[Rfam]
RNA sequence: AUAUUGACUGUGAUGAGGAAUAGUAAAUGGACACACUUUAUAGAGAGCUGGCGGCAGGUGGAAGCCGGUAAGUGUCAAGUUGAACUCGCCUCGGAGUUUGCUUUAGUGAAGUAAUAGUAGCUAAUGGCCGUGUAUUCGCGUUAAGAAAUGAAGCUGAGUGCUGCGUCACUAAUUUGGGUGGUACCGCGGGAGUAAAAAAUAUCUCUCGUCCCUUCU
Dot-bracket structure: ......((......((((.......(((.......(((........((((((...........)))))))))......))).......))))...))...(((((((............))))).)).(((......)))................((((......)))).....(((.......(((((((..........))))))))))....

The record is a 216-nucleotide RNA sequence from Solibacillus silvestris, which matches "T-box leader" in Rfam. A reference for the family is Gerdeman et al. (2003), "Solution structure of the Bacillus subtilis T-box antiterminator RNA: seven nucleotide bulge characterized by stacking and flexibility", J Mol Biol.